RNA sequence: UGCUAUAAUGAUGACAUUGUAUUUGCUACUCUUGACUGUGAGAAUGACGAGAUUUCUUACCACCAUUAUACUUAACUGAGGCA
Numbered sequence: 001u002g003c004u005a006u007a008a009u010g011a012u013g014a015c016a017u018u019g020u021a022u023u024u025g026c027u028a029c030u031c032u033u034g035a036c037u038g039u040g041a042g043a044a045u046g047a048c049g050a051g052a053u054u055u056c057u058u059a060c061c062a063c064c065a066u067u068a069u070a071c072u073u074a075a076c077u078g079a080g081g082c083a
Base pairs, nucleotide, nucleotide: 001083002082003081004080
RNA: Small nucleolar RNA SNORD24
Organism: Crocuta crocuta